RNA sequence: CGAUCUGCAGCGGGAGAGUUCUGCCGUUGACUCAACACCGGCAGGCGCCGUAGGAGCAAAUCCUCCCCAGGAAUCUCUCAGGCCCAGUACCGCUGCGGGUAG
Numbered sequence: 001c002g003a004u005c006u007g008c009a010g011c012g013g014g015a016g017a018g019u020u021c022u023g024c025c026g027u028u029g030a031c032u033c034a035a036c037a038c039c040g041g042c043a044g045g046c047g048c049c050g051u052a053g054g055a056g057c058a059a060a061u062c063c064u065c066c067c068c069a070g071g072a073a074u075c076u077c078u079c080a081g082g083c084c085c086a087g088u089a090c091c092g093c094u095g096c097g098g099g100u101a102g
Stems, first nucleotide, its partner, number of pairs: 006097008020045007047083003050079001054077003061069001
A member of the RNA family "Glycine riboswitch aptamer" from Arthrobacter sp. MN05-02, 102 nucleotides long. It scores 60 bits against the family's covariance model. NCBI's taxonomy places the organism under Bacteria, Bacillati, Actinomycetota, Micrococcaceae, Arthrobacter.